This 35-nucleotide sequence from Sousa chinensis belongs to the Rfam family "Iron response element I". Pairs were carried over by alignment from the consensus structure, which is taken from published work. The family has 62 seed sequences and 6,829 matches in Rfam 15.1. Gene Ontology term of the family: response to iron ion. The match comes from Rfam's covariance-model search (41 bits).

[Rfam]
RNA sequence: CAGAUUCUUGCUUCAACAGUGCUUGGACGGAACAC
Numbered sequence: 001c002a003g004a005u006u007c008u009u010g011c012u013u014c015a016a017c018a019g020u021g022c023u024u025g026g027a028c029g030g031a032a033c034a035c
Stems, first nucleotide, its partner, number of pairs: 003033001005032004010028001012027005017021001
The source organism's lineage runs through Eukaryota, Metazoa, Sarcopterygii, Artiodactyla and Sousa.